Source information:
The family of this 124-nucleotide sequence from Corynebacterium glyciniphilum is "atpB RNA". By type it is a cis-regulatory element.
RNA sequence: CCCCCGGUACCGUGCGGAUGUGCGACGGAGUCCACGGUUCCGGGAACUCCUGACAUCCUCCAUCGCACCGCCUGACCACAAUCACGCGGCCCAAACCACGGGAGAGAACGCUGAGCGUUACAAC
Numbered sequence: 001c002c003c004c005c006g007g008u009a010c011c012g013u014g015c016g017g018a019u020g021u022g023c024g025a026c027g028g029a030g031u032c033c034a035c036g037g038u039u040c041c042g043g044g045a046a047c048u049c050c051u052g053a054c055a056u057c058c059u060c061c062a063u064c065g066c067a068c069c070g071c072c073u074g075a076c077c078a079c080a081a082u083c084a085c086g087c088g089g090c091c092c093a094a095a096c097c098a099c100g101g102g103a104g105a106g107a108a109c110g111c112u113g114a115g116c117g118u119u120a121c122a123a124c
Stems, first nucleotide, its partner, number of pairs: 001044001004043004009038004068089004073084003
NCBI's taxonomy places the organism under Bacteria, Actinomycetes, Corynebacteriaceae, Corynebacterium, Corynebacterium glyciniphilum. A search with the family's covariance model found it, with a score of 97 bits.